[Rfam]
RNA sequence: GUGCGCUCCGGGGCUCGGUGCAAGUCCGAACCGGCGGUGACAGUCCGCGAACCGGCGCUUCGCCCAGCGAGGUGUCGGCCGAUCCGGUGGAAUUCCGGAACCGACGGUGACAGUCCGGAUGAGAGGCAGCGCAC
Numbered sequence: 001g002u003g004c005g006c007u008c009c010g011g012g013g014c015u016c017g018g019u020g021c022a023a024g025u026c027c028g029a030a031c032c033g034g035c036g037g038u039g040a041c042a043g044u045c046c047g048c049g050a051a052c053c054g055g056c057g058c059u060u061c062g063c064c065c066a067g068c069g070a071g072g073u074g075u076c077g078g079c080c081g082a083u084c085c086g087g088u089g090g091a092a093u094u095c096c097g098g099a100a101c102c103g104a105c106g107g108u109g110a111c112a113g114u115c116c117g118g119a120u121g122a123g124a125g126g127c128a129g130c131g132c133a134c
Base pairs, nucleotide, nucleotide: 003132004131005130006129007128008126009125016028017027018026030114031113032103033102034048035047036046037045043101044100052078053077054076055075056074083099084098085097086096087095105117106116107115
RNA: FMN riboswitch aptamer (RFN element)